A member of the RNA family "mir-2278 microRNA precursor family" from Rhinopithecus roxellana, 96 nucleotides long. Its family is annotated with miRNA-mediated post-transcriptional gene silencing and RISC complex in the Gene Ontology. The match comes from Rfam's covariance-model search (102 bits). Taxonomically the source falls in Rhinopithecus (Eukaryota, Deuterostomia, Chordata, Boreoeutheria).

RNA sequence: CUGCUGCAGGUGUUGGAGAGCAGUGUGUGUUGUGUGGGGACUAUGUAGAUAGGUAUCACCCGGACAGCUUGCACUGACUCCAGACCUUGCCAUCAU
Numbered sequence: 001c002u003g004c005u006g007c008a009g010g011u012g013u014u015g016g017a018g019a020g021c022a023g024u025g026u027g028u029g030u031u032g033u034g035u036g037g038g039g040a041c042u043a044u045g046u047a048g049a050u051a052g053g054u055a056u057c058a059c060c061c062g063g064a065c066a067g068c069u070u071g072c073a074c075u076g077a078c079u080c081c082a083g084a085c086c087u088u089g090c091c092a093u094c095a096u
Base pairs, nucleotide, nucleotide: 003093006090007089008088009087010086012085013084014082015081016080017079018078021076022075023074024073025072026071029068030067031066032065035062036061037060038059039057040056041052042051043050044049